Shown here is a 108-nucleotide RNA sequence from Polaromonas naphthalenivorans, a member of the family "SAM-I/IV (S-adenosyl methionine) riboswitch aptamer". The literature on the family includes a 2008 paper in RNA by Weinberg et al., "The aptamer core of SAM-IV riboswitches mimics the ligand-binding site of SAM-I riboswitches". The family's consensus secondary structure is taken from published work. The organism belongs to Polaromonas naphthalenivorans, within Bacteria. The family is grouped with related families in Rfam's "SAM clan".

[Rfam]
RNA sequence: GCUCAUCAUUAAGAGAUGGGUUGACGCCCACACCAACCUGCCAUUCGGGGCAAGGUGGUUUGCUUUCAAGCAGAUGUGGCUCCUCGAAGAGCAACCAAGCCGGCAGCG
Numbered sequence: 001g002c003u004c005a006u007c008a009u010u011a012a013g014a015g016a017u018g019g020g021u022u023g024a025c026g027c028c029c030a031c032a033c034c035a036a037c038c039u040g041c042c043a044u045u046c047g048g049g050g051c052a053a054g055g056u057g058g059u060u061u062g063c064u065u066u067c068a069a070g071c072a073g074a075u076g077u078g079g080c081u082c083c084u085c086g087a088a089g090a091g092c093a094a095c096c097a098a099g100c101c102g103g104c105a106g107c108g
Stems, first nucleotide, its partner, number of pairs: 007076004015031001017030005032059003037055003040051003045103004079092004
About this RNA:
The sequence is in the family's curated seed alignment. Rfam links the family to the GO terms S-adenosylmethionine metabolic process and regulation of gene expression.